[Rfam]
RNA sequence: CCCAGAGGUAUUUAUUGGUGAAUAUCCGGCGGCAACGUCGGAACCAUUUACUGGAUUACACCGACCUACGCGGAUGCGUAGGUUUUUUUU
Numbered sequence: 001c002c003c004a005g006a007g008g009u010a011u012u013u014a015u016u017g018g019u020g021a022a023u024a025u026c027c028g029g030c031g032g033c034a035a036c037g038u039c040g041g042a043a044c045c046a047u048u049u050a051c052u053g054g055a056u057u058a059c060a061c062c063g064a065c066c067u068a069c070g071c072g073g074a075u076g077c078g079u080a081g082g083u084u085u086u087u088u089u090u
Stems, first nucleotide, its partner, number of pairs: 016063005021052001028048001064083008

OmrA-B family: a 90-nucleotide sequence from Leminorella richardii. It scores 73 bits against the family's covariance model. The family's RNA type in Rfam is small RNA. Pairs were carried over by alignment from the consensus structure, which was predicted with WAR. The literature on the family includes a 2001 paper in Curr Biol by Argaman et al., "Novel small RNA-encoding genes in the intergenic regions of Escherichia coli".